Rfam assigns this 581-nucleotide part of an RNA from Trypanosoma brucei to the family "Eukaryotic small subunit ribosomal RNA". Pairs were carried over by alignment from the consensus structure, which is taken from published work. Lineage of the source: Eukaryota > Trypanosomatida > Trypanosoma > Trypanosoma brucei > Trypanosoma brucei brucei.
Nucleotides: 581
Stems, first nucleotide, its partner, number of pairs: 001579002003576003007573007016563002020527005025388001027386002030383005035377002041056004065372005071366001076119005089108002092105003123360002126358004132354001133352001134348003137344003144183003148179002150159003163174003189336004194302004200296001203293003305327001307325006392478003396474003406462001439456001442453001444451002485517001489513001490511003494507002533555007
Number, partner (000 for none) and nucleotide at each position: 001579u002578g003576a004575c005574g006000g007573a008572a009571u010570g011569g012568c013567a014000c015000c016563a017562c018000a019000a020527g021526a022525c023524g024523u025388g026000g027386a028385g029000c030383g031382u032381g033380c034379g035377g036376u037000u038000u039000a040000a041056u042055u043054u044053g045000a046000c047000u048000c049000a050000a051000c052000a053044c054043g055042g056041g057000g058000a059000a060000c061000u062000u063000u064000a065372c066371c067370a068369g069368a070000u071366c072000c073000g074000g075000a076119c077118a078117g079116g080115g081000u082000g083000a084000g085000g086000a087000u088000u089108g090107a091000c092105a093104g094103a095000u096000g097000g098000a099000g100000u101000g102000u103094u104093c105092u106000u107090u108089c109000u110000c111000g112000a113000u114000c115080c116079c117078c118077u119076g120000a121000a122000u123360g124359g125000u126358g127357g128356u129355g130000c131000a132354u133352g134348g135347c136346c137344g138343c139342u140000u141000u142000u143000g144183g145182u146181c147000g148179g149178u150159g151158g152157a153000g154000u155000g156000a157152u158151u159150u160000g161000u162000u163174u164173g165172g166000u167000u168000g169000a170000u171000u172165c173164c174163g175000u176000c177000a178149a179148c180000g181146g182145a183144c184000g185000a186000g187000a188000u189336c190335c191334a192333a193000g194302c195301u196300g197299c198000c199000c200296a201000g202000u203293a204292g205291g206000u207000g208000c209000c210000g211000g212000g213000a214000u215000u216000g217000u218000c219000c220000a221000c222000a223000c224000a225000g226000g227000a228000c229000a230000g231000c232000a233000g234000u235000c236000c237000c238000u239000c240000c241000g242000g243000c244000g245000g246000g247000g248000a249000u250000u251000u252000u253000u254000u255000c256000c257000c258000c259000a260000a261000c262000g263000g264000u265000g266000g267000u268000c269000g270000u271000c272000a273000u274000c275000c276000u277000u278000c279000u280000u281000u282000u283000u284000a285000c286000a287000g288000g289000c290000c291205c292204c293203u294000u295000c296200u297000c298000u299197g300196c301195g302194g303000g304000a305327u306000u307325c308324c309323u310322u311321g312320c313000u314000u315000u316000u317000c318000g319000c320312g321311c322310a323309a324308g325307g326000u327305g328000a329000g330000a331000u332000u333192u334191u335190g336189g337000g338000c339000a340000a341000c342139a343138g344137c345000a346136g347135g348134u349000c350000u351000g352133u353000g354132a355129u356128g357127c358126u359124c360123c361000u362000c363000a364000a365000u366071g367000u368069u369068c370067u371066g372065g373000g374000c375000g376036a377035c378000a379034c380033g381032c382031g383030c384000a385028c386027u387000a388025c389000a390000a391000u392478g393477u394476c395000a396474g397473u398472g399000a400000g401000a402000a403000c404000a405000a406462g407000a408000g409000u410000c411000c412000g413000a414000g415000c416000g417000g418000c419000a420000c421000u422000u423000c424000a425000c426000a427000a428000u429000g430000u431000c432000g433000c434000u435000c436000c437000c438000g439456c440000u441000u442453g443000a444451u445450c446000a447000a448000a449000a450445g451444a452000g453442c454000g455000g456439g457000g458000a459000a460000a461000c462406c463000a464000c465000g466000g467000a468000a469000u470000c471000a472398c473397g474396u475000a476394g477393a478392c479000c480000c481000a482000c483000u484000u485517g486000g487000g488000a489513c490511c491510g492509a493000g494507u495506a496000u497000u498000g499000c500000a501000a502000u503000u504000a505000u506495u507494g508000g509492u510491c511490g512000c513489g514000c515000a516000a517485c518000g519000a520000g521000g522000a523024a524023u525022g526021u527020c528000u529000c530000g531000u532000a533555g534554g535553c536552g537551c538550a539549g540000c541000u542000c543000a544000u545000c546000a547000a548000a549539c550538u551537g552536u553535g554534c555533c556000g557000a558000u559000u560000a561000c562017g563016u564000c565000c566000c567013u568012g569011c570010c571009a572008u573007u574005u575004g576003u577000a578002c579001a580000c581000a